[Rfam]
RNA: Ribosomal protein L10 leader
RNA sequence: AUUGGAUAUAGCUUUUUACCGUAGACAGUAGGUGCCGAAGUUGCUGCUUAAUAUCCUACCGAGGUAAGGAUACAUGCAUGGAUGUGGUGUGUUCCACGGAAUCCAUACGAGUAACGGAAGCCUUCGACUGUCUACGGAGGCUUUUUCUAUUUUUAA
Numbered sequence: 001a002u003u004g005g006a007u008a009u010a011g012c013u014u015u016u017u018a019c020c021g022u023a024g025a026c027a028g029u030a031g032g033u034g035c036c037g038a039a040g041u042u043g044c045u046g047c048u049u050a051a052u053a054u055c056c057u058a059c060c061g062a063g064g065u066a067a068g069g070a071u072a073c074a075u076g077c078a079u080g081g082a083u084g085u086g087g088u089g090u091g092u093u094c095c096a097c098g099g100a101a102u103c104c105a106u107a108c109g110a111g112u113a114a115c116g117g118a119a120g121c122c123u124u125c126g127a128c129u130g131u132c133u134a135c136g137g138a139g140g141c142u143u144u145u146u147c148u149a150u151u152u153u154u155a156a
Stems, first nucleotide, its partner, number of pairs: 028059005034047002120141007